MIR4387 microRNA precursor family: a 106-nucleotide RNA sequence from Glycine max. Taxonomically the source falls in Glycine subgen. Soja (Eukaryota, Streptophyta, rosids, fabids). The sequence is in the family's curated seed alignment. Its Rfam clan is "MIR4387 microRNA precursor clan". Its family is annotated with miRNA-mediated post-transcriptional gene silencing and RISC complex in the Gene Ontology.
RNA sequence: GAGUGUCACGUUAUCAUGUCUUGUCAUUGACAUCUCAUUGUCAUGUCAUCACCUUCAAUAACGUGACAUUGAUAUGUCACUGAUUAGGCAUGAUGAUGUGACACUC
Numbered sequence: 001g002a003g004u005g006u007c008a009c010g011u012u013a014u015c016a017u018g019u020c021u022u023g024u025c026a027u028u029g030a031c032a033u034c035u036c037a038u039u040g041u042c043a044u045g046u047c048a049u050c051a052c053c054u055u056c057a058a059u060a061a062c063g064u065g066a067c068a069u070u071g072a073u074a075u076g077u078c079a080c081u082g083a084u085u086a087g088g089c090a091u092g093a094u095g096a097u098g099u100g101a102c103a104c105u106c
Stems, first nucleotide, its partner, number of pairs: 003104019023084004028079006035072003039068008048059002